[Rfam]
Glycine riboswitch aptamer: a 109-nucleotide RNA from Fusibacter sp. 3D3.
On this family, see Babina et al., MBio 2017: "In Vivo Behavior of the Tandem Glycine Riboswitch in Bacillus subtilis".
The organism belongs to Fusibacter, within Bacteria.

RNA sequence: GGAUGGAUCUCUGGAGAGACCGAAAGGCACCGAAGGAGGAAGUGUUAAAGUGAGGUUACUUAAUCUCCUUUGGCGAGAAACUCUCAGGUAAAAAUACAGAGGUAUAUAA
Numbered sequence: 001g002g003a004u005g006g007a008u009c010u011c012u013g014g015a016g017a018g019a020c021c022g023a024a025a026g027g028c029a030c031c032g033a034a035g036g037a038g039g040a041a042g043u044g045u046u047a048a049a050g051u052g053a054g055g056u057u058a059c060u061u062a063a064u065c066u067c068c069u070u071u072g073g074c075g076a077g078a079a080a081c082u083c084u085c086a087g088g089u090a091a092a093a094a095u096a097c098a099g100a101g102g103u104a105u106a107u108a109a
Base pairs, nucleotide, nucleotide: 007103008102009101010100011099012098013097020027021026029089030088031087032085033084036083037082038081043075044074045073046072047071048070049069050068